[Rfam]
RNA sequence: UUAUGUUCUUGGCCUUCUAGCUAAGAUAAAUGUGUUAUCAGAUUCAAUGAAUAUGGUACCUGAUACGUCAUCAUUUUGAAGACUUUAUGUUCAUGCAUUGUUAGAAUUCGGAGCUUGCUCCCUCCCGUCUCUGCUUUGACCUGGUGUUGCGGUCCCUCCAAGACAGUGUGGCCAGC
Numbered sequence: 001u002u003a004u005g006u007u008c009u010u011g012g013c014c015u016u017c018u019a020g021c022u023a024a025g026a027u028a029a030a031u032g033u034g035u036u037a038u039c040a041g042a043u044u045c046a047a048u049g050a051a052u053a054u055g056g057u058a059c060c061u062g063a064u065a066c067g068u069c070a071u072c073a074u075u076u077u078g079a080a081g082a083c084u085u086u087a088u089g090u091u092c093a094u095g096c097a098u099u100g101u102u103a104g105a106a107u108u109c110g111g112a113g114c115u116u117g118c119u120c121c122c123u124c125c126c127g128u129c130u131c132u133g134c135u136u137u138g139a140c141c142u143g144g145u146g147u148u149g150c151g152g153u154c155c156c157u158c159c160a161a162g163a164c165a166g167u168g169u170g171g172c173c174a175g176c
Stems, first nucleotide, its partner, number of pairs: 007026003011022003036065006067083003071079003104124002110121004133169002136166003140162001142160003
U2 spliceosomal RNA: a 176-nucleotide RNA from Grus americana. Rfam 15.1 lists 71,512 matches to the family in 2,642 species. Taxonomically the source falls in Grus (Eukaryota, Bilateria, Sauropsida, Neognathae). Clan: U2 clan. Pairs were carried over by alignment from the consensus structure, which is taken from published work. Rfam classes the family as a spliceosomal small nuclear RNA. U2 is a small nuclear RNA (snRNA) component of the spliceosome (involved in pre-mRNA splicing). Complementary binding between U2 snRNA (in an area lying towards the 5' end but 3' to hairpin I) and the branchpoint sequence (BPS) of the intron results the bulging out of an unpaired adenosine, on the BPS, which initiates a nucleophilic attack at the intronic 5' splice site, thus starting the first of two transesterification reactions that mediate splicing.